[Rfam]
RNA sequence: UAUGCUGAUUUAGCCACAGUAGCAUACACUUUUAACAACAAUUUUUUGUUUACUGCUAGAAAUCAGCUAUAAUAAAAUAACAUUUUCAUAAUUUUAGGAACCUUUGUAAAAUAGUAACAACUUUUUCAAAGGGCCAUAUUUAUGAAUACAAAA
Numbered sequence: 001u002a003u004g005c006u007g008a009u010u011u012a013g014c015c016a017c018a019g020u021a022g023c024a025u026a027c028a029c030u031u032u033u034a035a036c037a038a039c040a041a042u043u044u045u046u047u048g049u050u051u052a053c054u055g056c057u058a059g060a061a062a063u064c065a066g067c068u069a070u071a072a073u074a075a076a077a078u079a080a081c082a083u084u085u086u087c088a089u090a091a092u093u094u095u096a097g098g099a100a101c102c103u104u105u106g107u108a109a110a111a112u113a114g115u116a117a118c119a120a121c122u123u124u125u126u127c128a129a130a131g132g133g134c135c136a137u138a139u140u141u142a143u144g145a146a147u148a149c150a151a152a153a
Stems, first nucleotide, its partner, number of pairs: 004067008017055004021050004085146005097135002101131001106126001108124003112120001114118001
A member of the RNA family "small nucleolar RNA snoR27" from Hepatocystis sp. ex Piliocolobus tephrosceles, 153 nucleotides long. The source organism's lineage runs through Eukaryota, Alveolata, Aconoidasida, Haemosporida and Hepatocystis.